[Rfam]
RNA sequence: CAUCAAGUCCGAGGCUCUGGGGCUUGCCGGAGCCUGGUGCAAAAAAGGGA
Number, nucleotide and partner (000 for none) at each position: 001c000002a000003u000004c000005a000006a000007g000008u000009c000010c000011g000012a000013g034014g033015c032016u031017c030018u029019g028020g027021g000022g000023c000024u000025u000026g000027c020028c019029g018030g017031a016032g015033c014034c013035u000036g000037g000038u000039g000040c000041a000042a000043a000044a000045a000046a000047g000048g000049g000050a000
The record is a 50-nucleotide sequence from Streptomyces flaveus, which matches "raiA-hairpin RNA" in Rfam. The source organism's lineage runs through Bacteria, Actinomycetota, Actinomycetes, Streptomycetaceae and Streptomyces. The family's consensus secondary structure is taken from published work. It is annotated as a small RNA.